[Rfam]
RNA sequence: CCCAAUAGCUGGGGGAGCCGCGAGGCUGAGAGGGGACAACCCGUCCCGACCCUUGGAACCUGACACGGAUCAUGCCGUCGGAGGAAAGCAGCCAUGCACCGCA
Numbered sequence: 001c002c003c004a005a006u007a008g009c010u011g012g013g014g015g016a017g018c019c020g021c022g023a024g025g026c027u028g029a030g031a032g033g034g035g036a037c038a039a040c041c042c043g044u045c046c047c048g049a050c051c052c053u054u055g056g057a058a059c060c061u062g063a064c065a066c067g068g069a070u071c072a073u074g075c076c077g078u079c080g081g082a083g084g085a086a087a088g089c090a091g092c093c094a095u096g097c098a099c100c101g102c103a
Stems, first nucleotide, its partner, number of pairs: 006091001008089003011053004017026003033047005059084003065078004
RNA: TPP riboswitch aptamer (THI element)